[Rfam]
RNA sequence: CUCUGAUUCAGCAGAUGUAUCAGGGCAUAAGGAG
Numbered sequence: 001c002u003c004u005g006a007u008u009c010a011g012c013a014g015a016u017g018u019a020u021c022a023g024g025g026c027a028u029a030a031g032g033a034g
Stems, first nucleotide, its partner, number of pairs: 001025007
The record is a 34-nucleotide RNA from Carnobacterium sp. WN1374, which matches "L31-Firmicutes ribosomal protein leader" in Rfam. A reference for the family is Eckert and Weinberg (2020), "Discovery of 20 novel ribosomal leader candidates in bacteria and archaea", BMC Microbiol. Lineage of the source: Bacteria > Bacilli > Lactobacillales > Carnobacteriaceae > Carnobacterium. Pairs were carried over by alignment from the consensus structure, which is taken from published work. It is one of the family's seed sequences. The family's RNA type in Rfam is cis-regulatory leader.